The family of this 67-nucleotide RNA sequence from Homarus americanus is "mir-29 microRNA precursor family". Gene Ontology terms of the family: RISC complex and gene silencing by miRNA. The base pairs follow the family's consensus structure, which was predicted with PFOLD. Rfam describes the family as follows. This family represents the microRNA (miRNA) precursors mir-29.
[Rfam]
RNA sequence: GGAGCCUGGUUUCAACUGGUGGGUAGAAGGUAGGAGAGUGUCUAGCACCAUUUGAAAUCAGUGCCUC
Number, nucleotide and partner (000 for none) at each position: 001g066002g065003a000004g062005c000006c061007u060008g059009g058010u057011u056012u055013c054014a053015a000016c000017u050018g049019g048020u047021g046022g000023g000024u044025a043026g042027a041028a000029g000030g000031u000032a000033g000034g000035a000036g000037a000038g000039u000040g000041u027042c026043u025044a024045g000046c021047a020048c019049c018050a017051u000052u000053u014054g013055a012056a011057a010058u009059c008060a007061g006062u004063g000064c000065c002066u001067c000